Rfam assigns this 110-nucleotide sequence from Glycine max to the family "MIR1520 microRNA precursor family". Rfam 15.1 lists 1,934 matches to the family in 15 species. Its family is annotated with RISC complex and miRNA-mediated post-transcriptional gene silencing in the Gene Ontology. It scores 56 bits against the family's covariance model.

[Rfam]
RNA sequence: UUUUUAUUGGACGUUGACCACCACAUGUUGCCUUUUUAUUAGACGUUAAUUUCGUGCACCUAAUUAACGUCCACGUUCAAUAAAAGUGUGACAUGUGACAGUUAACAUCC
Numbered sequence: 001u002u003u004u005u006a007u008u009g010g011a012c013g014u015u016g017a018c019c020a021c022c023a024c025a026u027g028u029u030g031c032c033u034u035u036u037u038a039u040u041a042g043a044c045g046u047u048a049a050u051u052u053c054g055u056g057c058a059c060c061u062a063a064u065u066a067a068c069g070u071c072c073a074c075g076u077u078c079a080a081u082a083a084a085a086g087u088g089u090g091a092c093a094u095g096u097g098a099c100a101g102u103u104a105a106c107a108u109c110c
Base pairs, nucleotide, nucleotide: 022097023096025094026093029090030089031088033086034085035084036083038081039080040079